RNA sequence: CACUGCCUACUAAUCUCGACCGGACCUCGACCGGCUCGUUUGUUAGCAAUCAACUUGGCGUGGUGUCGGUCAUGGUAGAUAGUUGGUC
Numbered sequence: 001c002a003c004u005g006c007c008u009a010c011u012a013a014u015c016u017c018g019a020c021c022g023g024a025c026c027u028c029g030a031c032c033g034g035c036u037c038g039u040u041u042g043u044u045a046g047c048a049a050u051c052a053a054c055u056u057g058g059c060g061u062g063g064u065g066u067c068g069g070u071c072a073u074g075g076u077a078g079a080u081a082g083u084u085g086g087u088c
Base pairs, nucleotide, nucleotide: 002087003086004085005084007082008081009080011078013076014075015074018071019070020069021068022067023066025063026062028060029059031058032057033056034055036053038051
A member of the RNA family "mir-1307 microRNA precursor family" from Fukomys damarensis, 88 nucleotides long. The match comes from Rfam's covariance-model search (77 bits). For this family Rfam cites "Application of massively parallel sequencing to microRNA profiling and discovery in human embryonic stem cells" (Morin et al., Genome Res, 2008). The base pairs follow the family's consensus structure, which was predicted with RNAalifold. NCBI's taxonomy places the organism under Eukaryota, Bilateria, Craniata, Mammalia, Fukomys.